[Rfam]
RNA: Small nucleolar RNA SNORD60
RNA sequence: AGGUUGUGAUGAAUUGCUUUAAUUUCUGACACCUCAUAUGAAAGCUGCACUUGCAGUCUUGCAAGACAGGCUU
Dot-bracket structure: ((.(.......................................(((((....)))))...........).)).